The family of this 74-nucleotide RNA from Haemonchus placei is "mir-5928 microRNA precursor family". The family has 5 seed sequences and 1,672 matches in Rfam 15.1. The base pairs follow the family's consensus structure, which was predicted with RNAalifold.
[Rfam]
RNA sequence: GGCUCAAUUUGAAGUUGAGUAGAUUGGUAGGAUCAGCUGACCAUACUAGUCUAAUCUACUUCAAGUUUGAGCCC
Numbered sequence: 001g002g003c004u005c006a007a008u009u010u011g012a013a014g015u016u017g018a019g020u021a022g023a024u025u026g027g028u029a030g031g032a033u034c035a036g037c038u039g040a041c042c043a044u045a046c047u048a049g050u051c052u053a054a055u056c057u058a059c060u061u062c063a064a065g066u067u068u069g070a071g072c073c074c
Stems, first nucleotide, its partner, number of pairs: 001073007009065001010063006017056002020053003024049006031042001033040002
Description
NCBI's taxonomy places the organism under Eukaryota, Opisthokonta, Rhabditina, Rhabditomorpha, Haemonchus.